RNA sequence: AUGUUUCUGCAAAGGAUGGAGCGGGCUUCAUUUUUACAGGUUUGCAGAUGCCUGGAGUCCGUGUAAUCCGGUCCAUCGUUCCGAUGUUAAUUCAUCAU
Numbered sequence: 001a002u003g004u005u006u007c008u009g010c011a012a013a014g015g016a017u018g019g020a021g022c023g024g025g026c027u028u029c030a031u032u033u034u035u036a037c038a039g040g041u042u043u044g045c046a047g048a049u050g051c052c053u054g055g056a057g058u059c060c061g062u063g064u065a066a067u068c069c070g071g072u073c074c075a076u077c078g079u080u081c082c083g084a085u086g087u088u089a090a091u092u093c094a095u096c097a098u
Stems, first nucleotide, its partner, number of pairs: 006048006014069002017066001021062006028056002038053004076084003
RNA: RT-5 RNA